[Rfam]
RNA sequence: CACGGUGACCGGGCCCCUCUGGCAAGAGAUCGGCGCUCUUGUGAUGUCGGCACCUCGC
Numbered sequence: 001c002a003c004g005g006u007g008a009c010c011g012g013g014c015c016c017c018u019c020u021g022g023c024a025a026g027a028g029a030u031c032g033g034c035g036c037u038c039u040u041g042u043g044a045u046g047u048c049g050g051c052a053c054c055u056c057g058c
Stems, first nucleotide, its partner, number of pairs: 006052002009050004022042007